This 391-nucleotide RNA sequence from Luteitalea sp. TBR-22 belongs to the Rfam family "Bacterial RNase P class A". A search with the family's covariance model found it, with a score of 294 bits.
RNA sequence: GCAGUCGUCCAGGCGAUCGCUGGCAAUGGGCGCAAGUCCGUUGCUGGAGGAAAGUCCGAACUCCGCAGGGCAGUGCGCCGGGUAACGCCCGGGCGGGGCAACCCGACGGAAAGUGGCACAGAAAACACACAGCUGACGCGCACUUCGGUGCGCAAGCAAUGGUGAAAAGGUGCGGUAAGAGCGCACCGCGCGGCCGGCAACGGACGUGGCAGGCAAAACCCCGCACGGAGCAAGACCAAAUAGGGAGGCGCUCGAGGACGGCCCGUCCGAAGCCUCCGGGUAGGUUGCUCGAGGCCGUCAGCAAUGCCGGUCCCAGAGGAAUGAUCGCUCGCUCGUGCGCCCGCAAGGGGGCGCGGGCCGACAGAAUUCGGCUUAUCGGACGACUGCAGCA
Numbered sequence: 001g002c003a004g005u006c007g008u009c010c011a012g013g014c015g016a017u018c019g020c021u022g023g024c025a026a027u028g029g030g031c032g033c034a035a036g037u038c039c040g041u042u043g044c045u046g047g048a049g050g051a052a053a054g055u056c057c058g059a060a061c062u063c064c065g066c067a068g069g070g071c072a073g074u075g076c077g078c079c080g081g082g083u084a085a086c087g088c089c090c091g092g093g094c095g096g097g098g099c100a101a102c103c104c105g106a107c108g109g110a111a112a113g114u115g116g117c118a119c120a121g122a123a124a125a126c127a128c129a130c131a132g133c134u135g136a137c138g139c140g141c142a143c144u145u146c147g148g149u150g151c152g153c154a155a156g157c158a159a160u161g162g163u164g165a166a167a168a169g170g171u172g173c174g175g176u177a178a179g180a181g182c183g184c185a186c187c188g189c190g191c192g193g194c195c196g197g198c199a200a201c202g203g204a205c206g207u208g209g210c211a212g213g214c215a216a217a218a219c220c221c222c223g224c225a226c227g228g229a230g231c232a233a234g235a236c237c238a239a240a241u242a243g244g245g246a247g248g249c250g251c252u253c254g255a256g257g258a259c260g261g262c263c264c265g266u267c268c269g270a271a272g273c274c275u276c277c278g279g280g281u282a283g284g285u286u287g288c289u290c291g292a293g294g295c296c297g298u299c300a301g302c303a304a305u306g307c308c309g310g311u312c313c314c315a316g317a318g319g320a321a322u323g324a325u326c327g328c329u330c331g332c333u334c335g336u337g338c339g340c341c342c343g344c345a346a347g348g349g350g351g352c353g354c355g356g357g358c359c360g361a362c363a364g365a366a367u368u369c370g371g372c373u374u375a376u377c378g379g380a381c382g383a384c385u386g387c388a389g390c391a
Stems, first nucleotide, its partner, number of pairs: 001387010011376001012329007020047011052374003056371005061230004068264004073226005078092005093107001094105004108221002113219002116214002130161002132157003138153006169187006188210001189208004194203003234286004244277006256268004293312005299306002